[Rfam]
RNA sequence: GUGCAAAUGAUGUGAACUUUAAUUCCACUGACUGAGGUGAUGUUUCCAAAGGAACCACUGAUGCAC
Numbered sequence: 001g002u003g004c005a006a007a008u009g010a011u012g013u014g015a016a017c018u019u020u021a022a023u024u025c026c027a028c029u030g031a032c033u034g035a036g037g038u039g040a041u042g043u044u045u046c047c048a049a050a051g052g053a054a055c056c057a058c059u060g061a062u063g064c065a066c
Stems, first nucleotide, its partner, number of pairs: 001066005
Small nucleolar RNA SNORD42: a 66-nucleotide RNA from Acanthisitta chloris. Rfam 15.1 lists 848 matches to the family in 572 species. snoRNA U42 is found in intron 3 of the ribosomal protein L23a (RPL23a) gene in humans and is also present in mice. The family's consensus secondary structure was predicted with PFOLD. For this family Rfam cites "Purified box C/D snoRNPs are able to reproduce site-specific 2'-O-methylation of target RNA in vitro" (Galardi et al., Mol Cell Biol, 2002). Lineage of the source: Eukaryota > Opisthokonta > Deuterostomia > Teleostomi > Acanthisitta.